[Rfam]
RNA sequence: UGACUAUCUUAAUUAUAUUAAGAUUUAGCCAUACGGACAGCUGGUCAAAAUGCCGC
Numbered sequence: 001u002g003a004c005u006a007u008c009u010u011a012a013u014u015a016u017a018u019u020a021a022g023a024u025u026u027a028g029c030c031a032u033a034c035g036g037a038c039a040g041c042u043g044g045u046c047a048a049a050a051u052g053c054c055g056c
Stems, first nucleotide, its partner, number of pairs: 001047005006024006

The record is a 56-nucleotide RNA sequence, which matches "Streptococcus sRNA SpF59 (ldcC RNA)" in Rfam. The family's RNA type in Rfam is small RNA.